[Rfam]
RNA sequence: GGUCAUGAGCGCCAGCACCAAGCCCCGGCUUGCUGGCCGGCAACCCUCCUUGCGCGGUGGGGUGCCCCGGGUGAAGACCUGGCCCGCCGGCGUCCGCCGGCAGGCAAGCGCGGCGC
Number, nucleotide and partner (000 for none) at each position: 001g079002g078003u077004c076005a000006u000007g000008a000009g038010c000011g037012c036013c035014a034015g033016c032017a000018c000019c000020a000021a030022g029023c000024c000025c000026c000027g000028g000029c022030u021031u000032g016033c015034u014035g013036g012037c011038c009039g066040g065041c064042a000043a000044c062045c061046c060047u000048c057049c056050u000051u000052g000053c000054g000055c000056g049057g048058u000059g000060g046061g045062g044063u000064g041065c040066c039067c000068c000069g000070g000071g000072u000073g000074a000075a000076g004077a003078c002079c001080u000081g000082g105083c104084c103085c000086g101087c100088c099089g098090g097091c096092g000093u000094c000095c000096g091097c090098c089099g088100g087101c086102a000103g084104g083105c082106a000107a000108g000109c000110g000111c000112g000113g000114c000115g000116c000

The record is a 116-nucleotide RNA from Arthrobacter sp. C9C5, which matches "SAM (S-adenosyl methionine) riboswitch aptamer" in Rfam. The base pairs follow the family's consensus structure, which is taken from published work. Lineage of the source: Bacteria > Actinomycetota > Actinomycetes > Micrococcaceae > Arthrobacter. Gene Ontology terms of the family: S-adenosylmethionine metabolic process and regulation of gene expression.